[Rfam]
RNA sequence: CCCGCCACUGUGCCGGCCUGCUUUCUCAGCCAUGGCUGUGCACAAUCCAGUGGUGAGCUGAGAGGAAGCCCCCAUUCUAGGAAACAGGCUUGCCCUCUCUGUGGGUAACUCUGUGCCGAUGAGUGGGAACAAAC
Numbered sequence: 001c002c003c004g005c006c007a008c009u010g011u012g013c014c015g016g017c018c019u020g021c022u023u024u025c026u027c028a029g030c031c032a033u034g035g036c037u038g039u040g041c042a043c044a045a046u047c048c049a050g051u052g053g054u055g056a057g058c059u060g061a062g063a064g065g066a067a068g069c070c071c072c073c074a075u076u077c078u079a080g081g082a083a084a085c086a087g088g089c090u091u092g093c094c095c096u097c098u099c100u101g102u103g104g105g106u107a108a109c110u111c112u113g114u115g116c117c118g119a120u121g122a123g124u125g126g127g128a129a130c131a132a133a134c
Base pairs, nucleotide, nucleotide: 005053006052007051008050009049010048018040019038020037021035022034069127070126071125074124075123076122077121080117081116085113086112087111088110090108093105094104095103
RNA: Small nucleolar RNA SNORA65